Eukaryotic large subunit ribosomal RNA: a 435-nucleotide part of an RNA from Blastomyces gilchristii.
RNA sequence: AAUAGUAGUAAAUACUUAAAUGAGAACUUUGAGAACUGAAGUGAGAAAAGAUUUCAUGUGAAUAGCAGUUGAAUAUGAAUUAGUUAAUUCUAAGAUAUAGAGAAACUCUGUUUGAAAGCAUGCUCUCAUGCACUGUCUAUUAAAAGAGAAGCUGAUUAAUAUUUCAGCAUCUGAAUGUGAAUUAUUCAUGACAAUGUAACUGAACACAGAGAUGUCAGUGAGAAUUCUGAGAACAGUUAUCUUUUCUUCUUAACAGUCUAUUACUCUGAAAUCAGUUUAUUCAGAGCUAGGGUUCAAUGACUAGCAGAGUCUCACAUCUUUGCAGAAUUCAGUGUGCCUCUGACAAUCCUUGAAAAUUCACAGAAAGAAAUAGUUUUCAUAUCAGAUUAUACUUAUAAUCACAGCAGGUCUUCAAGAUGAAAAGCCUCUAGUUAA
Numbered sequence: 001a002a003u004a005g006u007a008g009u010a011a012a013u014a015c016u017u018a019a020a021u022g023a024g025a026a027c028u029u030u031g032a033g034a035a036c037u038g039a040a041g042u043g044a045g046a047a048a049a050g051a052u053u054u055c056a057u058g059u060g061a062a063u064a065g066c067a068g069u070u071g072a073a074u075a076u077g078a079a080u081u082a083g084u085u086a087a088u089u090c091u092a093a094g095a096u097a098u099a100g101a102g103a104a105a106c107u108c109u110g111u112u113u114g115a116a117a118g119c120a121u122g123c124u125c126u127c128a129u130g131c132a133c134u135g136u137c138u139a140u141u142a143a144a145a146g147a148g149a150a151g152c153u154g155a156u157u158a159a160u161a162u163u164u165c166a167g168c169a170u171c172u173g174a175a176u177g178u179g180a181a182u183u184a185u186u187c188a189u190g191a192c193a194a195u196g197u198a199a200c201u202g203a204a205c206a207c208a209g210a211g212a213u214g215u216c217a218g219u220g221a222g223a224a225u226u227c228u229g230a231g232a233a234c235a236g237u238u239a240u241c242u243u244u245u246c247u248u249c250u251u252a253a254c255a256g257u258c259u260a261u262u263a264c265u266c267u268g269a270a271a272u273c274a275g276u277u278u279a280u281u282c283a284g285a286g287c288u289a290g291g292g293u294u295c296a297a298u299g300a301c302u303a304g305c306a307g308a309g310u311c312u313c314a315c316a317u318c319u320u321u322g323c324a325g326a327a328u329u330c331a332g333u334g335u336g337c338c339u340c341u342g343a344c345a346a347u348c349c350u351u352g353a354a355a356a357u358u359c360a361c362a363g364a365a366a367g368a369a370a371u372a373g374u375u376u377u378c379a380u381a382u383c384a385g386a387u388u389a390u391a392c393u394u395a396u397a398a399u400c401a402c403a404g405c406a407g408g409u410c411u412u413c414a415a416g417a418u419g420a421a422a423a424g425c426c427u428c429u430a431g432u433u434a435a
Base pairs, nucleotide, nucleotide: 015033016032017031018030019029020028034433035432036431037430043413044412045411049393050392054078055077056076057075058074059073063071064070085389086388087387089147090146094141095140097111098110100109102107121132122131151168152167153166154165155164171385172384173383174382176381177380178379179378180377181375188197189196190195209358210357214347215346219342220341222339225336227332228331229330230250231249232248233247235245255302256301257300258299263293264292265291266290267289268288272284275281310327312325315322316321399408400407415427416426418424
Taxonomically the source falls in Blastomyces gilchristii (Eukaryota, Fungi, Ajellomycetaceae, Blastomyces).